Bacterial large subunit ribosomal RNA: a 518-nucleotide part of an RNA from Sulfuritortus calidifontis. The family has 102 seed sequences and 51,934 matches in Rfam 15.1. The base pairs follow the family's consensus structure, which is taken from published work. The organism belongs to Sulfuritortus, within Bacteria.

[Rfam]
RNA sequence: GACUAAGUGCAUGUGGUGGAUGCCUUGGCGAUCACAGGCGAUGAAGGACGUGGUAGCCUGCGAAAAGCGCGGGGGAGCUGGCAAACGAGCUUUGAUCCCGCGAUGUCCGAAUGGGGAAACCCACCCGCGAGGGUACCCUUGACUGAAUACAUAGGUCAUGUGGAGCGAACCGAGUGAACUGAAACAUCUCAGUAGCUCGAGGAACAGAAAUCAACCGAGAUUCCCAAAGUAGUGGCGAGCGAAAUGGGACGAGCCUGCACAACUAAACCAGUCUCUCAGCAGAACGGUCUGGAAAGUCCGGCCAUAGUGGGUGAUAGCCCCGUAUGUGAAAAGAGAUUGGCGGGUCUAGGUGUGCGACAAGUAGGGCGGGACACGUGUAAUCCUGUCUGAAGAUGGGGGGACCAUCCUCCAAGGCUAAAUACUCGUGAUCGACCGAUAGUGAACCAGUACCGUGAGGGAAAGGCGAAAAGAACCCCGGGAGGGGAGUGAAAUAGAUCCUGAAACCGCAUGCAUACAAA
Number, nucleotide and partner (000 for none) at each position: 001g000002a000003c000004u000005a000006a000007g513008u512009g511010c510011a509012u508013g507014u506015g505016g504017u000018g000019g000020a000021u000022g498023c463024c462025u000026u000027g434028g433029c431030g430031a429032u428033c427034a426035c425036a423037g422038g166039c165040g000041a000042u000043g000044a000045a000046g108047g107048a106049c062050g061051u060052g000053g000054u000055a000056g000057c000058c000059u000060g051061c050062g049063a000064a000065a000066a000067g000068c102069g101070c100071g099072g098073g097074g096075g000076a000077g090078c089079u088080g000081g000082c000083a000084a000085a000086c000087g000088a079089g078090c077091u000092u000093u000094g000095a000096u074097c073098c072099c071100g070101c069102g068103a000104u000105g000106u048107c047108c046109g000110a000111a000112u000113g122114g121115g120116g000117a000118a000119a000120c115121c114122c113123a134124c133125c132126c131127g000128c000129g000130a000131g126132g125133g124134u123135a000136c163137c162138c160139u000140u158141g157142a156143c155144u154145g000146a000147a000148u000149a000150c000151a000152u000153a000154g144155g143156u142157c141158a140159u000160g138161u000162g137163g136164a000165g039166c038167g000168a000169a000170c201171c199172g198173a197174g196175u195176g000177a000178a000179c000180u000181g188182a187183a000184a000185c000186a000187u182188c181189u000190c000191a000192g000193u000194a000195g175196c174197u173198c172199g171200a000201g170202g000203a000204a000205c000206a000207g000208a000209a000210a000211u218212c217213a000214a000215c000216c000217g212218a211219g000220a000221u419222u249223c248224c247225c246226a245227a000228a000229g000230u000231a000232g240233u239234g000235g000236c000237g000238a000239g233240c232241g000242a000243a000244a000245u226246g225247g224248g223249a222250c000251g000252a416253g415254c414255c413256u000257g000258c000259a000260c352261a351262a000263c349264u348265a000266a000267a000268c340269c339270a338271g337272u336273c335274u334275c333276u332277c000278a000279g327280c326281a325282g000283a000284a000285c300286g299287g298288u000289c296290u000291g000292g000293a000294a000295a000296g289297u000298c287299c286300g285301g000302c000303c307304a000305u000306a000307g303308u000309g321310g320311g319312u000313g000314a000315u000316a000317g000318c000319c311320c310321c309322g000323u000324a000325u281326g280327u279328g000329a000330a000331a000332a276333g275334a274335g273336a272337u271338u270339g269340g268341c000342g000343g000344g000345u000346c000347u000348a264349g263350g000351u261352g260353u000354g000355c000356g000357a000358c000359a000360a000361g000362u000363a000364g388365g387366g386367c385368g384369g383370g382371a381372c000373a000374c000375g000376u000377g000378u000379a000380a000381u371382c370383c369384u368385g367386u366387c365388u364389g000390a000391a000392g000393a000394u000395g410396g409397g408398g407399g406400g000401a000402c000403c000404a000405u000406c399407c398408u397409c396410c395411a000412a000413g255414g254415c253416u252417a000418a000419a221420u000421a000422c037423u036424c000425g035426u034427g033428a032429u031430c030431g029432a000433c028434c027435g000436a000437u000438a000439g000440u000441g000442a000443a000444c000445c000446a000447g000448u000449a000450c457451c456452g000453u000454g000455a000456g451457g450458g000459a000460a000461a000462g024463g023464c000465g000466a000467a000468a000469a000470g000471a000472a000473c484474c483475c482476c481477g000478g000479g000480a000481g476482g475483g474484g473485a000486g000487u000488g000489a000490a000491a000492u000493a000494g000495a000496u000497c000498c022499u000500g000501a000502a000503a000504c016505c015506g014507c013508a012509u011510g010511c009512a008513u007514a000515c000516a000517a000518a000